[Rfam]
RNA sequence: GAUUUAUAAAGAAGAAGGGAGAGAAUAGGCUCUAUGAACUUCUGGCAACCUACUGAUUCGUAAAGGCAAGGUGCUAAUUCCUACCCAAUAAGUUAAUCAUUAUUGGGAAAUAUAAACC
Numbered sequence: 001g002a003u004u005u006a007u008a009a010a011g012a013a014g015a016a017g018g019g020a021g022a023g024a025a026u027a028g029g030c031u032c033u034a035u036g037a038a039c040u041u042c043u044g045g046c047a048a049c050c051u052a053c054u055g056a057u058u059c060g061u062a063a064a065g066g067c068a069a070g071g072u073g074c075u076a077a078u079u080c081c082u083a084c085c086c087a088a089u090a091a092g093u094u095a096a097u098c099a100u101u102a103u104u105g106g107g108a109a110a111u112a113u114a115a116a117c118c
Base pairs, nucleotide, nucleotide: 001118003116004115005114006113007112008111013043014042015041016040017039021032022031023030026083027082028081029080044075045074046073047072049071050070053065054064079110084107085106086105087104088103089102090101091100
SAM riboswitch aptamer (S box leader): a 118-nucleotide RNA from Flectobacillus sp. BAB-3569. Lineage of the source: Bacteria > Bacteroidota > Cytophagales > Flectobacillaceae > Flectobacillus.